[Rfam]
RNA: Acido-Lenti-1 RNA
Organism: Ahniella affigens
RNA sequence: CCCAGGGUUUCACCCUGGGCUGGUAUGCGACGCCCCUUCGGGGCU
Numbered sequence: 001c002c003c004a005g006g007g008u009u010u011c012a013c014c015c016u017g018g019g020c021u022g023g024u025a026u027g028c029g030a031c032g033c034c035c036c037u038u039c040g041g042g043g044c045u
Stems, first nucleotide, its partner, number of pairs: 001019008032044005